[Rfam]
RNA sequence: CUGCUGCUGCUGCUGUAGCUCAUGCUGCUGUAGCUGCUGCUACAGUAGCUGUAGCUGCUGCUACAGUAGCUGUAGCUGCUGCUACUGUAGCUGCUGUAGCUGCUGCUGCUGUAGCUGCUGCUACUGUAGCUGCUGCUGCUGCUGCUGCUGCUGUAGCUGCUGCUGCUGUAGCUGCUGCUGUAGCUGCUGCUGUAGCUGCUGCUGCUGUAGCUGCUGCUGUAGCUGCUGCUGCUCGUACCAACCUCGACAGCUGUAAUUGGUUUAAAUCCCCACACAGCAGCCAGCAGGAUUCUCCUGCAGCAGCAUGAUAAC
Numbered sequence: 001c002u003g004c005u006g007c008u009g010c011u012g013c014u015g016u017a018g019c020u021c022a023u024g025c026u027g028c029u030g031u032a033g034c035u036g037c038u039g040c041u042a043c044a045g046u047a048g049c050u051g052u053a054g055c056u057g058c059u060g061c062u063a064c065a066g067u068a069g070c071u072g073u074a075g076c077u078g079c080u081g082c083u084a085c086u087g088u089a090g091c092u093g094c095u096g097u098a099g100c101u102g103c104u105g106c107u108g109c110u111g112u113a114g115c116u117g118c119u120g121c122u123a124c125u126g127u128a129g130c131u132g133c134u135g136c137u138g139c140u141g142c143u144g145c146u147g148c149u150g151c152u153g154u155a156g157c158u159g160c161u162g163c164u165g166c167u168g169u170a171g172c173u174g175c176u177g178c179u180g181u182a183g184c185u186g187c188u189g190c191u192g193u194a195g196c197u198g199c200u201g202c203u204g205c206u207g208u209a210g211c212u213g214c215u216g217c218u219g220u221a222g223c224u225g226c227u228g229c230u231g232c233u234c235g236u237a238c239c240a241a242c243c244u245c246g247a248c249a250g251c252u253g254u255a256a257u258u259g260g261u262u263u264a265a266a267u268c269c270c271c272a273c274a275c276a277g278c279a280g281c282c283a284g285c286a287g288g289a290u291u292c293u294c295c296u297g298c299a300g301c302a303g304c305a306u307g308a309u310a311a312c
Base pairs, nucleotide, nucleotide: 006304007303008302009301010300012298013297017293018292019288020287023286024285025284026283027223028222029221030220031219032218033217034216037213039211040210041209042208043207060076061075062074063073064072065071066070077113078112079111081109085105087103089101090100091099092098093097114202115201117199118198120196121195122194123193124192126190127189128188129187130186133183134182135181136180138178139177141175142174144151145150156172157171162166228281229280230279231278232277233276
This 312-nucleotide RNA from Takifugu rubripes belongs to the Rfam family "isrG Hfq binding RNA". Rfam classes the family as a small RNA. NCBI's taxonomy places the organism under Eukaryota, Opisthokonta, Craniata, Eurypterygia, Takifugu. The match comes from Rfam's covariance-model search (100 bits).